[Rfam]
RNA sequence: UUCCCGGAUCCCGCGUUCAGAGGCAGAGGCGGGGGACCCACGGUCCCGGGCCACGAGUGCCCUUGGGGUUAAGCCAGCACGUGAUUUUCCGUGUGGCCGGAUGCCCUCAUCCGAACCCGACAGCUAACUCCGCAGGUGUGAGAGGCGAU
Numbered sequence: 001u002u003c004c005c006g007g008a009u010c011c012c013g014c015g016u017u018c019a020g021a022g023g024c025a026g027a028g029g030c031g032g033g034g035g036a037c038c039c040a041c042g043g044u045c046c047c048g049g050g051c052c053a054c055g056a057g058u059g060c061c062c063u064u065g066g067g068g069u070u071a072a073g074c075c076a077g078c079a080c081g082u083g084a085u086u087u088u089c090c091g092u093g094u095g096g097c098c099g100g101a102u103g104c105c106c107u108c109a110u111c112c113g114a115a116c117c118c119g120a121c122a123g124c125u126a127a128c129u130c131c132g133c134a135g136g137u138g139u140g141a142g143a144g145g146c147g148a149u
Stems, first nucleotide, its partner, number of pairs: 004136002009028001011026001029133006039065002066118003074096003099112004

Rfam assigns this 149-nucleotide sequence from Arthrobacter sp. HMWF013 to the family "c-di-AMP riboswitch aptamer (ydaO/yuaA leader)".